[Rfam]
RNA sequence: CGGGCGGUGUACUCCCAGGUCAGCCCCGGCUCGGUGAGGACCUCGUCGCCGAAGUACUCGCCGUCCGCGAGCACCCCGAGGGACCGCUCGUCGCCGUAGGUACCGGGCCCGAACUUCCCGAUUUUGCCGUGGGCGAUGAGGAACACCUCGUCGGCGGGCGCACCCGUCUCCGCAAGAACGUCGCCCGCGGCGUACUCCCGCUGGACGAACCGGUCGGCGAGGCCGGCGAGCGCCCCGCCGUCGAAGCCGCGCAGCGCGGGCAGUUCGGCGAGCUCGCCGGGUACCACCCGCACGUCGGACCCGACGGAGGUGAACGCGACGAGGCCGUCGCCGAGCACGUAGGUCAACCGGCGGUUGACCCGGUAGACGCCGCUGGCGGUCUGCACCCAGGGCAGCACCCGCAGCAGCCACCGGGAGGUGAUCUCCUGCAUCUGCGGGACGGGCUUGGUGGUCGUCGCGAGGUUGCGCGCGGCCGCCGUGCUCAGACUCAGCCGAGGGUCCUCGC
Numbered sequence: 001c002g003g004g005c006g007g008u009g010u011a012c013u014c015c016c017a018g019g020u021c022a023g024c025c026c027c028g029g030c031u032c033g034g035u036g037a038g039g040a041c042c043u044c045g046u047c048g049c050c051g052a053a054g055u056a057c058u059c060g061c062c063g064u065c066c067g068c069g070a071g072c073a074c075c076c077c078g079a080g081g082g083a084c085c086g087c088u089c090g091u092c093g094c095c096g097u098a099g100g101u102a103c104c105g106g107g108c109c110c111g112a113a114c115u116u117c118c119c120g121a122u123u124u125u126g127c128c129g130u131g132g133g134c135g136a137u138g139a140g141g142a143a144c145a146c147c148u149c150g151u152c153g154g155c156g157g158g159c160g161c162a163c164c165c166g167u168c169u170c171c172g173c174a175a176g177a178a179c180g181u182c183g184c185c186c187g188c189g190g191c192g193u194a195c196u197c198c199c200g201c202u203g204g205a206c207g208a209a210c211c212g213g214u215c216g217g218c219g220a221g222g223c224c225g226g227c228g229a230g231c232g233c234c235c236c237g238c239c240g241u242c243g244a245a246g247c248c249g250c251g252c253a254g255c256g257c258g259g260g261c262a263g264u265u266c267g268g269c270g271a272g273c274u275c276g277c278c279g280g281g282u283a284c285c286a287c288c289c290g291c292a293c294g295u296c297g298g299a300c301c302c303g304a305c306g307g308a309g310g311u312g313a314a315c316g317c318g319a320c321g322a323g324g325c326c327g328u329c330g331c332c333g334a335g336c337a338c339g340u341a342g343g344u345c346a347a348c349c350g351g352c353g354g355u356u357g358a359c360c361c362g363g364u365a366g367a368c369g370c371c372g373c374u375g376g377c378g379g380u381c382u383g384c385a386c387c388c389a390g391g392g393c394a395g396c397a398c399c400c401g402c403a404g405c406a407g408c409c410a411c412c413g414g415g416a417g418g419u420g421a422u423c424u425c426c427u428g429c430a431u432c433u434g435c436g437g438g439a440c441g442g443g444c445u446u447g448g449u450g451g452u453c454g455u456c457g458c459g460a461g462g463u464u465g466c467g468c469g470c471g472g473c474c475g476c477c478g479u480g481c482u483c484a485g486a487c488u489c490a491g492c493c494g495a496g497g498g499u500c501c502u503c504g505c
Stems, first nucleotide, its partner, number of pairs: 006387006014379002018325001020322002025318001027316002031313002035310001041307002045305004049298004054233002057230007068111002071108001078103001083097002086094002117222002122217002127212001129210002131206001134203002138199001140197001143196001149192002154188007166173002234290001237287001240284002247279001249277003253274003257268001259266001326339003348376007360366001388428005394422001396420003400415001402413001404412001434473002437470001440467002443464001444462003448458002474504002478499002481496003485492001
The record is a 505-nucleotide RNA from Candidatus Frankia alpina, which matches "Saccharopolyspora sRNA 350" in Rfam. Rfam classes the family as an antisense RNA. Its family is annotated with regulation of secondary metabolite biosynthetic process in the Gene Ontology. NCBI's taxonomy places the organism under Bacteria, Bacillati, Actinomycetota, Frankiaceae, Frankia.